[Rfam]
RNA: Eukaryotic large subunit ribosomal RNA, nucleotides 1 to 423
Organism: Bursaphelenchus xylophilus
RNA sequence: ACCACCUGAGUUGGGUAUGACUACCUGCUGAACUUAAGCAUAUCAGUAAGCAGAGGAAAAGAAACAAACAUGGAUUCCCUGAGUAACUGCGAGUGAAACGGGAAGAGCCCAGCGCUAAAGGUUGUUGGCUUCUGGCUGAUGACCGGUGUAGCGUAUAGAACCUUCGUUCGGCUUGUUCAGGCUGGCUUAAGUCUCGUUGGAACGCGGCGGCUAAGACGGUUUUACCCCGGUAAACCUGGCUGGACUUGGUGAGUGUUGGUUCUGGGAGUCGGGUUGUUUGGAAACGCAGCCCAAAGUUGGUGGUAAACUUCACCUAAGGCUAAAUACGACCGCGAGACCGAUAGAAAACAAGUACCGUGAGGGAAAGUUGAAAAGUACUUUGAAAAGAGAGUGCAAGAGAACGUGAAACCGGUGUAAUGGAAG
Numbered sequence: 001a002c003c004a005c006c007u008g009a010g011u012u013g014g015g016u017a018u019g020a021c022u023a024c025c026u027g028c029u030g031a032a033c034u035u036a037a038g039c040a041u042a043u044c045a046g047u048a049a050g051c052a053g054a055g056g057a058a059a060a061g062a063a064a065c066a067a068a069c070a071u072g073g074a075u076u077c078c079c080u081g082a083g084u085a086a087c088u089g090c091g092a093g094u095g096a097a098a099c100g101g102g103a104a105g106a107g108c109c110c111a112g113c114g115c116u117a118a119a120g121g122u123u124g125u126u127g128g129c130u131u132c133u134g135g136c137u138g139a140u141g142a143c144c145g146g147u148g149u150a151g152c153g154u155a156u157a158g159a160a161c162c163u164u165c166g167u168u169c170g171g172c173u174u175g176u177u178c179a180g181g182c183u184g185g186c187u188u189a190a191g192u193c194u195c196g197u198u199g200g201a202a203c204g205c206g207g208c209g210g211c212u213a214a215g216a217c218g219g220u221u222u223u224a225c226c227c228c229g230g231u232a233a234a235c236c237u238g239g240c241u242g243g244a245c246u247u248g249g250u251g252a253g254u255g256u257u258g259g260u261u262c263u264g265g266g267a268g269u270c271g272g273g274u275u276g277u278u279u280g281g282a283a284a285c286g287c288a289g290c291c292c293a294a295a296g297u298u299g300g301u302g303g304u305a306a307a308c309u310u311c312a313c314c315u316a317a318g319g320c321u322a323a324a325u326a327c328g329a330c331c332g333c334g335a336g337a338c339c340g341a342u343a344g345a346a347a348a349c350a351a352g353u354a355c356c357g358u359g360a361g362g363g364a365a366a367g368u369u370g371a372a373a374a375g376u377a378c379u380u381u382g383a384a385a386a387g388a389g390a391g392u393g394c395a396a397g398a399g400a401a402c403g404u405g406a407a408a409c410c411g412g413u414g415u416a417a418u419g420g421a422a423g
Stems, first nucleotide, its partner, number of pairs: 024055001025053005035042002065072002076103004086094002106321004113153005119147001120144009158262002161258001165255004175245003181240005187234001191208001193207002196205002211215001218228002271292007299314004355362002378389004